[Rfam]
The family of this 89-nucleotide sequence from Clostridium tepidiprofundi is "pan motif".
RNA sequence: UGGGUGGUAUCAUUUAGAGCUGCACCGAAUUGAGAUAUUAAAUUUUUGAGGAUUUUACUGCUUAUAUCUUUUUAGAAUAAGACUUUUGG
Number, nucleotide and partner (000 for none) at each position: 001u027002g026003g025004g023005u022006g021007g020008u019009a000010u018011c017012a000013u000014u000015u000016a000017g011018a010019g008020c007021u006022g005023c004024a000025c003026c002027g001028a000029a000030u000031u000032g000033a000034g000035a000036u000037a000038u000039u000040a000041a000042a000043u000044u000045u000046u000047u000048g000049a000050g000051g000052a000053u000054u000055u000056u000057a000058c000059u000060g083061c081062u080063u079064a078065u077066a000067u076068c075069u074070u000071u000072u000073u000074a069075g068076a067077a065078u064079a063080a062081g061082a000083c060084u000085u000086u000087u000088g000089g000
The base pairs follow the family's consensus structure, which is taken from published work.